[Rfam]
RNA sequence: CUUAAUCUUCGGGGUAGGGUGAAAUUCCCAAUCGGCGGUAUAGCCCGCGAGCCAAGGUAAAACUUGGUUGAUUUGGUUAAAUUCCAAAGCCGACAGUAAAGUCUGGAUGGAAGAAGAUAUUU
Numbered sequence: 001c002u003u004a005a006u007c008u009u010c011g012g013g014g015u016a017g018g019g020u021g022a023a024a025u026u027c028c029c030a031a032u033c034g035g036c037g038g039u040a041u042a043g044c045c046c047g048c049g050a051g052c053c054a055a056g057g058u059a060a061a062a063c064u065u066g067g068u069u070g071a072u073u074u075g076g077u078u079a080a081a082u083u084c085c086a087a088a089g090c091c092g093a094c095a096g097u098a099a100a101g102u103c104u105g106g107a108u109g110g111a112a113g114a115a116g117a118u119a120u121u122u
Stems, first nucleotide, its partner, number of pairs: 005118006017029003031102002033092002035048004043090002051068003072088005094105003
A member of the RNA family "FMN riboswitch aptamer (RFN element)" from Clostridioides difficile, 122 nucleotides long.
The source organism's lineage runs through Bacteria, Clostridia, Peptostreptococcales, Peptostreptococcaceae and Clostridioides.